Annotation: A member of the RNA family "Group II catalytic intron D1-D4-3" from Endozoicomonas numazuensis, 165 nucleotides long. Rfam 15.1 lists 4,274 matches to the family in 1,585 species. Group II introns are found in rRNA, tRNA and mRNA of organelles in fungi, plants and protists, and also in mRNA in bacteria. Taxonomically the source falls in Endozoicomonas (Bacteria, Pseudomonadati, Pseudomonadota, Gammaproteobacteria).
Nucleotides: 165
Stems, first nucleotide, its partner, number of pairs: 001016003005012002028165001030163002035158002040152006046145005062140006073132003078127005085111003090105004
Number, partner (000 for none) and nucleotide at each position: 001016c002015a003014g004000c005012c006011c007000g008000u009000g010000a011006g012005g013000u014003c015002u016001g017000g018000u019000c020000u021000g022000g023000a024000g025000g026000a027000a028165g029000c030163c031162g032000c033000u034000a035158g036157c037000a038000a039000a040152g041151c042150u043149g044148c045147g046145a047144g048143c049142u050141g051000a052000u053000g054000a055000a056000c057000a058000a059000g060000a061000a062140c063139a064138u065137c066136c067135u068000a069000u070000g071000a072000g073132g074131c075130g076000u077000a078127g079126g080125c081124u082123g083000g084000a085111g086110g087109c088000g089000a090105g091104u092103u093102g094000g095000c096000a097000u098000a099000a100000g101000a102093c103092a104091a105090c106000g107000a108000a109087g110086c111085c112000a113000c114000g115000u116000g117000a118000u119000c120000u121000g122000a123082c124081g125080g126079c127078c128000a129000c130075c131074g132073u133000a134000a135067a136066g137065g138064a139063u140062g141050c142049a143048g144047u145046u146000g147045c148044g149043c150042a151041g152040u153000g154000a155000c156000a157036g158035u159000u160000c161000a162031u163030g164000u165028c